mir-6715 microRNA precursor family: a 57-nucleotide RNA from Mus musculus. Taxonomically the source falls in Mus (Eukaryota, Deuterostomia, Vertebrata, Euteleostomi).
RNA sequence: ACAGGCACCACAGGUUUGAGCAUUUUGAUUGAAUUGCCAAACCAGGCGUGCCUGUGG
Dot-bracket structure: ((((((((..(.((((((.(((.(((....))).))))))))).)..))))))))..
Numbered sequence: 001a002c003a004g005g006c007a008c009c010a011c012a013g014g015u016u017u018g019a020g021c022a023u024u025u026u027g028a029u030u031g032a033a034u035u036g037c038c039a040a041a042c043c044a045g046g047c048g049u050g051c052c053u054g055u056g057g
Stems, first nucleotide, its partner, number of pairs: 001055008011045001013043006020037003024033003